The family of this 67-nucleotide RNA sequence from Leptidea sinapis is "mir-1000 microRNA precursor family".
A search with the family's covariance model found it, with a score of 64 bits.
The base pairs follow the family's consensus structure, which was predicted with RNAalifold.
The family has 13 seed sequences and 152 matches in Rfam 15.1.
Lineage of the source: Eukaryota > Bilateria > Pancrustacea > Neolepidoptera > Leptidea.
[Rfam]
Nucleotides: 067
Base pairs, nucleotide, nucleotide: 003065004064005063006062012056013055014054015053016052017051018050022046023045024044025043026042027041028040029039
Number, partner (000 for none) and nucleotide at each position: 001000u002000c003065u004064a005063g006062c007000c008000a009000u010000a011000u012056u013055g014054u015053c016052c017051u018050g019000u020000c021000a022046c023045a024044g025043c026042a027041g028040u029039a030000c031000g032000u033000c034000u035000a036000u037000u038000c039029u040028a041027c042026u043025g044024c045023u046022g047000c048000g049000c050018c051017g052016g053015g054014a055013c056012a057000a058000g059000c060000c061000g062006g063005c064004u065003a066000g067000a